RNA sequence: GAAUGGCAUGAUGAAUAGAAGAUGUUUCCCUAUCGGUUUGAUUGUCAUGAUGAUGGCAUCUCUAAGUAUUAACUCUAUAUAAUCAUUA
Numbered sequence: 001g002a003a004u005g006g007c008a009u010g011a012u013g014a015a016u017a018g019a020a021g022a023u024g025u026u027u028c029c030c031u032a033u034c035g036g037u038u039u040g041a042u043u044g045u046c047a048u049g050a051u052g053a054u055g056g057c058a059u060c061u062c063u064a065a066g067u068a069u070u071a072a073c074u075c076u077a078u079a080u081a082a083u084c085a086u087u088a
Base pairs, nucleotide, nucleotide: 002087003086004085005084040060043058044057045056046055